[Rfam]
RNA: c-di-AMP riboswitch aptamer (ydaO/yuaA leader)
RNA sequence: CCAAACAUUCUGUUACAUCGGGAGUAAGCCAAGAGCGGAGGAACCAAGUUUGGGGCUCAUCUGACAAAAAAGUAAAAAAUGAAGAAUAAAGAAUGAAAAAAAACAAAAUAACUCUAGUUCUUUACUUCUGUCUUUUUUUCUGACUUUCUCUUUUGUAAGAAGGACAUCUCUCAGUCCUAGCCCGUCAGCUAACUUCGUCGGCAUUGAGAGGAGACUGA
Numbered sequence: 001c002c003a004a005a006c007a008u009u010c011u012g013u014u015a016c017a018u019c020g021g022g023a024g025u026a027a028g029c030c031a032a033g034a035g036c037g038g039a040g041g042a043a044c045c046a047a048g049u050u051u052g053g054g055g056c057u058c059a060u061c062u063g064a065c066a067a068a069a070a071a072g073u074a075a076a077a078a079a080u081g082a083a084g085a086a087u088a089a090a091g092a093a094u095g096a097a098a099a100a101a102a103a104c105a106a107a108a109u110a111a112c113u114c115u116a117g118u119u120c121u122u123u124a125c126u127u128c129u130g131u132c133u134u135u136u137u138u139u140c141u142g143a144c145u146u147u148c149u150c151u152u153u154u155g156u157a158a159g160a161a162g163g164a165c166a167u168c169u170c171u172c173a174g175u176c177c178u179a180g181c182c183c184g185u186c187a188g189c190u191a192a193c194u195u196c197g198u199c200g201g202c203a204u205u206g207a208g209a210g211g212a213g214a215c216u217g218a
Stems, first nucleotide, its partner, number of pairs: 001201002008032001035198006045052002053183003061159002064156006162177004